[Rfam]
RNA sequence: AGGGAGGCAGAUUCCUGGUCAGAGCUGAGCUGUGCUCUGUCCGUCACUAGUCCUCCCUAGAGUAUCCCUGCUCUCUGAUGACCGCGCUGACCUGAGGGAAAUCACCACGGACAGAUACGGAGCUGACAACG
Numbered sequence: 001a002g003g004g005a006g007g008c009a010g011a012u013u014c015c016u017g018g019u020c021a022g023a024g025c026u027g028a029g030c031u032g033u034g035c036u037c038u039g040u041c042c043g044u045c046a047c048u049a050g051u052c053c054u055c056c057c058u059a060g061a062g063u064a065u066c067c068c069u070g071c072u073c074u075c076u077g078a079u080g081a082c083c084g085c086g087c088u089g090a091c092c093u094g095a096g097g098g099a100a101a102u103c104a105c106c107a108c109g110g111a112c113a114g115a116u117a118c119g120g121a122g123c124u125g126a127c128a129a130c131g
Stems, first nucleotide, its partner, number of pairs: 002057006016043003022037004068125001070123005082110003088104003
RNA: Small Cajal body specific RNA 8
Organism: Muraenolepis orangiensis